[Rfam]
RNA: drz-agam-1 ribozyme
Organism: Sinocyclocheilus anshuiensis
RNA sequence: GGCUGAUGAAAACCUUCCACCUCCUCCUCGUGGUAUCGGCUGGUAACAAGGACUUUAAUGGUCCUUGGCGAACGGUGGGGG
Numbered sequence: 001g002g003c004u005g006a007u008g009a010a011a012a013c014c015u016u017c018c019a020c021c022u023c024c025u026c027c028u029c030g031u032g033g034u035a036u037c038g039g040c041u042g043g044u045a046a047c048a049a050g051g052a053c054u055u056u057a058a059u060g061g062u063c064c065u066u067g068g069c070g071a072a073c074g075g076u077g078g079g080g081g
Stems, first nucleotide, its partner, number of pairs: 013081003017078005023033002047067008